[Rfam]
RNA sequence: UGGUCAUUACCAAGGCUUUUAGAAUGCAGUUUCUCAUUUGCUGUGGACAUGACCAUAAAGAAAAAUUCCCAUGAGGUUUUUCAUAUGCUACUUGACUAGCAGUUAACCUGUUGGGAACAUUU
Numbered sequence: 001u002g003g004u005c006a007u008u009a010c011c012a013a014g015g016c017u018u019u020u021a022g023a024a025u026g027c028a029g030u031u032u033c034u035c036a037u038u039u040g041c042u043g044u045g046g047a048c049a050u051g052a053c054c055a056u057a058a059a060g061a062a063a064a065a066u067u068c069c070c071a072u073g074a075g076g077u078u079u080u081u082c083a084u085a086u087g088c089u090a091c092u093u094g095a096c097u098a099g100c101a102g103u104u105a106a107c108c109u110g111u112u113g114g115g116a117a118c119a120u121u122u
Stems, first nucleotide, its partner, number of pairs: 003053005010046003026041004068115004075108004086101003
Description
Rfam assigns this 122-nucleotide RNA to the family "Small nucleolar RNA SNORA32". The sequence is in the family's curated seed alignment. Rfam 15.1 lists 615 matches to the family in 234 species. Gene Ontology terms of the family: RNA processing and nucleolus. The family's consensus secondary structure was predicted with RNAfold. ACA32 is a member of the H/ACA class of snoRNA that guide the sites of modification of uridines to pseudouridines.